[Rfam]
Description:
This 111-nucleotide RNA from Hibiscus trionum belongs to the Rfam family "Small nucleolar RNA snoR100". The organism belongs to Hibiscus, within Eukaryota. Pairs were carried over by alignment from the consensus structure, which was predicted with WAR.

RNA sequence: UAAUGAAGGAAGCAUGGUAAUGUGCACGGAGAUUGAAUCUUCCGAUGGGACGACAUGUCUGCUCUCUCUGAGCCUUGCUUUGACGAGGGGGCCUGGUUUACUCCUACAUUC
Numbered sequence: 001u002a003a004u005g006a007a008g009g010a011a012g013c014a015u016g017g018u019a020a021u022g023u024g025c026a027c028g029g030a031g032a033u034u035g036a037a038u039c040u041u042c043c044g045a046u047g048g049g050a051c052g053a054c055a056u057g058u059c060u061g062c063u064c065u066c067u068c069u070g071a072g073c074c075u076u077g078c079u080u081u082g083a084c085g086a087g088g089g090g091g092c093c094u095g096g097u098u099u100a101c102u103c104c105u106a107c108a109u110u111c
Stems, first nucleotide, its partner, number of pairs: 012025004047094003051090001057084003061078002